[Rfam]
Nucleotides: 116
Base pairs, nucleotide, nucleotide: 032070034068036062038060039059040058080112081111082110083109084108085107086106087105088104089103090102091101
Number, partner (000 for none) and nucleotide at each position: 001000u002000u003000g004000u005000a006000a007000g008000a009000u010000a011000g012000a013000a014000u015000a016000a017000u018000u019000g020000u021000g022000u023000a024000c025000g026000u027000u028000a029000a030000u031000a032070a033000c034068g035000a036062a037000g038060a039059u040058g041000u042000a043000a044000u045000c046000u047000g048000a049000u050000u051000a052000u053000a054000a055000c056000a057000u058040c059039g060038u061000g062036u063000u064000u065000g066000u067000u068034u069000a070032u071000a072000u073000g074000c075000a076000a077000u078000a079000u080112a081111a082110a083109a084108g085107a086106a087105c088104c089103u090102g091101a092000u093000g094000a095000a096000a097000c098000a099000a100000c101091u102090c103089a104088g105087g106086u107085u108084c109083u110082u111081u112080u113000u114000u115000g116000a

A member of the RNA family "Bacillus sRNA ncr1015" from Paenibacillus mucilaginosus, 116 nucleotides long. It is one of the family's seed sequences. On this family, see Irnov et al., Nucleic Acids Res 2010: "Identification of regulatory RNAs in Bacillus subtilis". The family's consensus secondary structure is taken from published work. Lineage of the source: Bacteria > Bacillati > Bacilli > Paenibacillaceae > Paenibacillus mucilaginosus.